[Rfam]
RNA sequence: UUUAAUAUUUGGCAAAGCAGACGAAAGUUUGUGACGCAAAGCUUUAGUCUAAAGCGGAUUUCGCUAUGAUUGUCAAGUUGCAAUU
Numbered sequence: 001u002u003u004a005a006u007a008u009u010u011g012g013c014a015a016a017g018c019a020g021a022c023g024a025a026a027g028u029u030u031g032u033g034a035c036g037c038a039a040a041g042c043u044u045u046a047g048u049c050u051a052a053a054g055c056g057g058a059u060u061u062c063g064c065u066a067u068g069a070u071u072g073u074c075a076a077g078u079u080g081c082a083a084u085u
Stems, first nucleotide, its partner, number of pairs: 012037002017032006040079004045075001046073001047070003054064004
Dot-bracket structure: ...........((...((((((....))))))...))..((((.(((((....((((...))))...)))..).)))))......
c-di-GMP-I riboswitch aptamer: an 85-nucleotide RNA sequence from Parasporobacterium paucivorans. The base pairs follow the family's consensus structure, which is taken from published work. Rfam describes the family as follows. GEMM was predicted in a large-scale screen for bacterial structured RNA regulatory elements. Taxonomically the source falls in Parasporobacterium paucivorans (Bacteria, Bacillota, Lachnospirales, Lachnospiraceae).